[Rfam]
RNA sequence: AUCGCUUCUUGGCCUUUUGGCUAUGAUCAAGUGUAGUAUCUGGUCUUAUCAGUUUAAAAGAAAAUAUAGACAAGAUCCAUCUAAGUGGCUCAGUUGGUAAUGUGUCUGCCUUUGGCUCAGGUAAUGGUCUCAGGGUCCUGGGAUGGAGCCCCACAUUGGGCUCCCUGCUCAGGGGGGAGUCUGCUUCUCCCUCUCCCUCUUGCCCCCCCCA
Numbered sequence: 001a002u003c004g005c006u007u008c009u010u011g012g013c014c015u016u017u018u019g020g021c022u023a024u025g026a027u028c029a030a031g032u033g034u035a036g037u038a039u040c041u042g043g044u045c046u047u048a049u050c051a052g053u054u055u056a057a058a059a060g061a062a063a064a065u066a067u068a069g070a071c072a073a074g075a076u077c078c079a080u081c082u083a084a085g086u087g088g089c090u091c092a093g094u095u096g097g098u099a100a101u102g103u104g105u106c107u108g109c110c111u112u113u114g115g116c117u118c119a120g121g122u123a124a125u126g127g128u129c130u131c132a133g134g135g136u137c138c139u140g141g142g143a144u145g146g147a148g149c150c151c152c153a154c155a156u157u158g159g160g161c162u163c164c165c166u167g168c169u170c171a172g173g174g175g176g177g178a179g180u181c182u183g184c185u186u187c188u189c190c191c192u193c194u195c196c197c198u199c200u201u202g203c204c205c206c207c208c209c210c211a
Stems, first nucleotide, its partner, number of pairs: 007026002011022004047099008101119002104116003145164007167204001169202001171200002174196006
The record is a 211-nucleotide RNA from Neogale vison, which matches "U2 spliceosomal RNA" in Rfam. Rfam's curators write: U2 is a small nuclear RNA (snRNA) component of the spliceosome (involved in pre-mRNA splicing). Complementary binding between U2 snRNA (in an area lying towards the 5' end but 3' to hairpin I) and the branchpoint sequence (BPS) of the intron results the bulging out of an unpaired adenosine, on the BPS, which initiates a nucleophilic attack at the intronic 5' splice site, thus starting the first of two transesterification reactions that mediate splicing. The match comes from Rfam's covariance-model search (62 bits).